[Rfam]
RNA sequence: AUCGACCACGGAGAUGACAUUCCUCCCGCCCCGAUAAGGGAUAAACCGCCUGACCGGCUGAUGAUGUCUGCGUAACC
Numbered sequence: 001a002u003c004g005a006c007c008a009c010g011g012a013g014a015u016g017a018c019a020u021u022c023c024u025c026c027c028g029c030c031c032c033g034a035u036a037a038g039g040g041a042u043a044a045a046c047c048g049c050c051u052g053a054c055c056g057g058c059u060g061a062u063g064a065u066g067u068c069u070g071c072g073u074a075a076c077c
Stems, first nucleotide, its partner, number of pairs: 010026004016068006048058003
Shown here is a 77-nucleotide RNA from Serratia rubidaea, a member of the family "Fluoride riboswitch aptamer (crcB RNA motif)". Pairs were carried over by alignment from the consensus structure, which is taken from published work.